A member of the RNA family "Lysine riboswitch aptamer" from Sporolactobacillus shoreae, 181 nucleotides long. A search with the family's covariance model found it, with a score of 115 bits. NCBI's taxonomy places the organism under Bacteria, Bacillati, Bacillota, Bacilli, Sporolactobacillus.
RNA sequence: AGAGGGGGUAGAGGUUGCGGCAUUUAUGACGAGCGCGCCCGAGGCUUGGGGAAGCCUGUGACUGUGCGCAAAAGGAAAUGCCGCCGAAGUUUGUCCGGCUCUCUGGCCGGGCGGGCUGGGACCGUCGCCGAACAGGGGCGGGACUGUCACAUGUGAAAGCAUGUGAUGUGCUAUCGGUGGA
Numbered sequence: 001a002g003a004g005g006g007g008g009u010a011g012a013g014g015u016u017g018c019g020g021c022a023u024u025u026a027u028g029a030c031g032a033g034c035g036c037g038c039c040c041g042a043g044g045c046u047u048g049g050g051g052a053a054g055c056c057u058g059u060g061a062c063u064g065u066g067c068g069c070a071a072a073a074g075g076a077a078a079u080g081c082c083g084c085c086g087a088a089g090u091u092u093g094u095c096c097g098g099c100u101c102u103c104u105g106g107c108c109g110g111g112c113g114g115g116c117u118g119g120g121a122c123c124g125u126c127g128c129c130g131a132a133c134a135g136g137g138g139c140g141g142g143a144c145u146g147u148c149a150c151a152u153g154u155g156a157a158a159g160c161a162u163g164u165g166a167u168g169u170g171c172u173a174u175c176g177g178u179g180g181a
Stems, first nucleotide, its partner, number of pairs: 007175005017084009033069006088117012118145002122141005128135001147166007